RNA: SAM riboswitch aptamer (S box leader)
Organism: Denitrovibrio acetiphilus
RNA sequence: AACUUAUCGAGAGUAGUGGAGGGACAAGGCCCUGUGAAGCUACAGCAGCCGGUUAGCAUUAAAAGCUGAUGUCUGGUGCUAAUUCCGACCCUAUGGAGGAGAGAUAAGUC
Numbered sequence: 001a002a003c004u005u006a007u008c009g010a011g012a013g014u015a016g017u018g019g020a021g022g023g024a025c026a027a028g029g030c031c032c033u034g035u036g037a038a039g040c041u042a043c044a045g046c047a048g049c050c051g052g053u054u055a056g057c058a059u060u061a062a063a064a065g066c067u068g069a070u071g072u073c074u075g076g077u078g079c080u081a082a083u084u085c086c087g088a089c090c091c092u093a094u095g096g097a098g099g100a101g102a103g104a105u106a107a108g109u110c
Stems, first nucleotide, its partner, number of pairs: 002109007013043005021032003028086002044080004049076002051073003084102001089099002